[Rfam]
Shown here is a 108-nucleotide RNA from Halolactibacillus alkaliphilus, a member of the family "TPP riboswitch aptamer (THI element)".

RNA sequence: CAAGCCUUCAAGGGGAGCUGAUAAUCGUCAGCUGAGAGUAAGUAUCGAUACUUAGACCCUCUGAACCUGUUAGUUAAUACUAGCGUAGGGAUGGUGGCUUUUUUGAUG
Numbered sequence: 001c002a003a004g005c006c007u008u009c010a011a012g013g014g015g016a017g018c019u020g021a022u023a024a025u026c027g028u029c030a031g032c033u034g035a036g037a038g039u040a041a042g043u044a045u046c047g048a049u050a051c052u053u054a055g056a057c058c059c060u061c062u063g064a065a066c067c068u069g070u071u072a073g074u075u076a077a078u079a080c081u082a083g084c085g086u087a088g089g090g091a092u093g094g095u096g097g098c099u100u101u102u103u104u105g106a107u108g
Base pairs, nucleotide, nucleotide: 006096008094009093010092011060012059013058014057017032018031019030020029021028039054040053041052042051043050066089067088068087069086070083071082072081073080
Description: Gene Ontology term of the family: thiamine pyrophosphate binding.